[Rfam]
Alphaproteobacterial ar14: a 119-nucleotide sequence from Aurantimonas sp. Leaf443.
RNA sequence: GAGCUUCGCAGCGGCUCCUCCUCCCAAUCGCCGCUGUGGAUCAGACCCGCACCUCCUCCUCCCAAUCGGUGCGGGUUGUCUUAGACGCUCGCCGGGUCCUCCCCCGGCGAGCGCAAGGU
Numbered sequence: 001g002a003g004c005u006u007c008g009c010a011g012c013g014g015c016u017c018c019u020c021c022u023c024c025c026a027a028u029c030g031c032c033g034c035u036g037u038g039g040a041u042c043a044g045a046c047c048c049g050c051a052c053c054u055c056c057u058c059c060u061c062c063c064a065a066u067c068g069g070u071g072c073g074g075g076u077u078g079u080c081u082u083a084g085a086c087g088c089u090c091g092c093c094g095g096g097u098c099c100u101c102c103c104c105c106g107g108c109g110a111g112c113g114c115a116a117g118g119u
Stems, first nucleotide, its partner, number of pairs: 007038003011034004044077010086113010
The family's RNA type in Rfam is small RNA.